[Rfam]
Shown here is a 102-nucleotide RNA from Erysipelothrix sp. HDW6A, a member of the family "Purine riboswitch aptamer". The organism belongs to Erysipelothrix, within Bacteria. From the family's description: Riboswitches are metabolite binding domains within certain messenger RNAs that serve as precision sensors for their corresponding targets.
RNA sequence: UAAGAAGGUAUUAUAAAGCCAAAUUUAAUACUCAUAAUAUGGUUGAGUAGUUUCUACCAAUGCACCUUAAAUGCAUUGACAAUCGUGCUGAAAACACUAGAU
Numbered sequence: 001u002a003a004g005a006a007g008g009u010a011u012u013a014u015a016a017a018g019c020c021a022a023a024u025u026u027a028a029u030a031c032u033c034a035u036a037a038u039a040u041g042g043u044u045g046a047g048u049a050g051u052u053u054c055u056a057c058c059a060a061u062g063c064a065c066c067u068u069a070a071a072u073g074c075a076u077u078g079a080c081a082a083u084c085g086u087g088c089u090g091a092a093a094a095c096a097c098u099a100g101a102u
Stems, first nucleotide, its partner, number of pairs: 018088002023083003029049006058078007